[Rfam]
RNA sequence: GUGUAUUUAUGAAGACAAGGUCAUAAACCACAUACACUGUGGCUGACCUUGUCAGAUGGUUUCAACAC
Numbered sequence: 001g002u003g004u005a006u007u008u009a010u011g012a013a014g015a016c017a018a019g020g021u022c023a024u025a026a027a028c029c030a031c032a033u034a035c036a037c038u039g040u041g042g043c044u045g046a047c048c049u050u051g052u053c054a055g056a057u058g059g060u061u062u063c064a065a066c067a068c
Base pairs, nucleotide, nucleotide: 001068002067003066004065014053015052016051017050018049019048020047021046022045023044029041030040031039

A member of the RNA family "Selenocysteine insertion sequence 1" from Patiria miniata, 68 nucleotides long. NCBI's taxonomy places the organism under Eukaryota, Bilateria, Asteroidea, Valvatacea, Patiria. The match comes from Rfam's covariance-model search (37 bits). From the family's description: The incorporation of selenocysteine into a protein sequence is directed by an in-frame UGA codon (usually a stop codon) within the coding region of the mRNA. Selenoprotein mRNAs contain a conserved secondary structure in the 3' UTR that is required for the distinction of UGA stop from UGA selenocysteine. The selenocysteine insertion sequence (SECIS) is around 60 nt in length and adopts a hairpin structure which is sufficiently well-defined and conserved to act as a computational screen for selenoprotein genes.